[Rfam]
RNA: U7 small nuclear RNA
Organism: Crypturellus undulatus
RNA sequence: AAAUAAUUGAUCUCUUUGAUCUUUUGUCCAGUUCAUUUCCUCCAGACAUGGAGGAAAUCCAC
Numbered sequence: 001a002a003a004u005a006a007u008u009g010a011u012c013u014c015u016u017u018g019a020u021c022u023u024u025u026g027u028c029c030a031g032u033u034c035a036u037u038u039c040c041u042c043c044a045g046a047c048a049u050g051g052a053g054g055a056a057a058u059c060c061a062c
Stems, first nucleotide, its partner, number of pairs: 035058010